[Rfam]
RNA sequence: CUUGGCCCUUGGGAAAAAAAGCCUCGCAACUUCCCCAUGGCCCAA
Numbered sequence: 001c002u003u004g005g006c007c008c009u010u011g012g013g014a015a016a017a018a019a020a021g022c023c024u025c026g027c028a029a030c031u032u033c034c035c036c037a038u039g040g041c042c043c044a045a
Stems, first nucleotide, its partner, number of pairs: 002044001004042002008039001010037004015032002021027002
Record summary
The record is a 45-nucleotide RNA from Lentivirus humimdef2, which matches "ribosomal frameshift site" in Rfam. The organism belongs to Lentivirus humimdef2, within Viruses. On this family, see Hatfield et al., Adv Virus Res 1992: "Translational suppression in retroviral gene expression". The family's consensus secondary structure is taken from published work. Rfam classes the family as a frameshift element.